[Rfam]
RNA sequence: CGGACAGGGGGGUCUUCGCCUUUCGGGGUGGAGCCUGUCCGGCAAGGUUGUGCGUGAUGUGCGUCAGGCGCGACCAGUGAUUGUCGCUCGGGGGUGAUCGCCG
Numbered sequence: 001c002g003g004a005c006a007g008g009g010g011g012g013u014c015u016u017c018g019c020c021u022u023u024c025g026g027g028g029u030g031g032a033g034c035c036u037g038u039c040c041g042g043c044a045a046g047g048u049u050g051u052g053c054g055u056g057a058u059g060u061g062c063g064u065c066a067g068g069c070g071c072g073a074c075c076a077g078u079g080a081u082u083g084u085c086g087c088u089c090g091g092g093g094g095u096g097a098u099c100g101c102c103g
Stems, first nucleotide, its partner, number of pairs: 001041008014033007046075008
The family of this 103-nucleotide sequence from Streptomyces turgidiscabies is "che1 RNA". The family's consensus secondary structure is taken from published work.